[Rfam]
RNA sequence: UUGCUCACAUCUCCUUAUCAUUUUUCCAGCCCAGCUAACAUUGGUGAAUACGUUGGACGGAGAACUGAUAAGGGCAUGUGCCUGA
Numbered sequence: 001u002u003g004c005u006c007a008c009a010u011c012u013c014c015u016u017a018u019c020a021u022u023u024u025u026c027c028a029g030c031c032c033a034g035c036u037a038a039c040a041u042u043g044g045u046g047a048a049u050a051c052g053u054u055g056g057a058c059g060g061a062g063a064a065c066u067g068a069u070a071a072g073g074g075c076a077u078g079u080g081c082c083u084g085a
Base pairs, nucleotide, nucleotide: 012074013073014072015071016070017069018068019067020066022064023063024062025061026060027059030056031055
RNA: mir-184 microRNA precursor family